[Rfam]
RNA sequence: ACUUUCCUUGUCAUGGGGUGGUUUGGGAAACUCAAUGAACGCGUAGUGAGAGAUUCCCUGCUGACACCAUAUCAACACAUACGCACCACCUGAACCGCGAGUUCAGACCACGGUGCAAUUUUUGGAAAC
Numbered sequence: 001a002c003u004u005u006c007c008u009u010g011u012c013a014u015g016g017g018g019u020g021g022u023u024u025g026g027g028a029a030a031c032u033c034a035a036u037g038a039a040c041g042c043g044u045a046g047u048g049a050g051a052g053a054u055u056c057c058c059u060g061c062u063g064a065c066a067c068c069a070u071a072u073c074a075a076c077a078c079a080u081a082c083g084c085a086c087c088a089c090c091u092g093a094a095c096c097g098c099g100a101g102u103u104c105a106g107a108c109c110a111c112g113g114u115g116c117a118a119u120u121u122u123u124g125g126a127a128a129c
Stems, first nucleotide, its partner, number of pairs: 006018004021061002027056003031052003039047002083116005090106006
RNA: U4atac minor spliceosomal RNA